This 175-nucleotide sequence from Hespellia stercorisuis belongs to the Rfam family "M-box riboswitch aptamer (ykoK leader)".
M-box riboswitch, also know as ykoK leader is described as a metaloregulatory RNA that sense divalent metals and function as a genetic control element of genes related to divalent metal transport in bacteria. It was first reported upstream of the B.subtilis ykoK gene and genes with related functions in other bacteria.
The match comes from Rfam's covariance-model search (97 bits).
Taxonomically the source falls in Hespellia stercorisuis (Bacteria, Bacillati, Clostridia, Hespellia).
RNA sequence: UAAAAACUUCGGUAGGUGAGGUUACCAUAGGGAUUAGGAUUCAUUUCCUGAGAUUGCUGCCGCGAAAAAAGUGGAGACACUUUCGAGUUGGUUAGCAGGCGUUGUCGAGAUAAGGCACCACCUAAUGCAAUUUUAUAUGCCCUAUGAUACUAAAGCUCAAACGAUGGAAUCAUAG
Numbered sequence: 001u002a003a004a005a006a007c008u009u010c011g012g013u014a015g016g017u018g019a020g021g022u023u024a025c026c027a028u029a030g031g032g033a034u035u036a037g038g039a040u041u042c043a044u045u046u047c048c049u050g051a052g053a054u055u056g057c058u059g060c061c062g063c064g065a066a067a068a069a070a071g072u073g074g075a076g077a078c079a080c081u082u083u084c085g086a087g088u089u090g091g092u093u094a095g096c097a098g099g100c101g102u103u104g105u106c107g108a109g110a111u112a113a114g115g116c117a118c119c120a121c122c123u124a125a126u127g128c129a130a131u132u133u134u135a136u137a138u139g140c141c142c143u144a145u146g147a148u149a150c151u152a153a154a155g156c157u158c159a160a161a162c163g164a165u166g167g168a169a170u171c172a173u174a175g
Base pairs, nucleotide, nucleotide: 006170008168009167010166011162013113015157016156017155020151021150022149026146027145028144029143030142031141032140053131054130055129056128057127059092060091061090062089070081071080072079073078098122099121101119104116105115106114
Dot-bracket structure: .....(.((((.[.(((..(((...(((((((....................(((((.((((.......((((....)))).......)))).....((.(..(((......])))..).))....)))))........)))))))..)))...)))....)...))).).....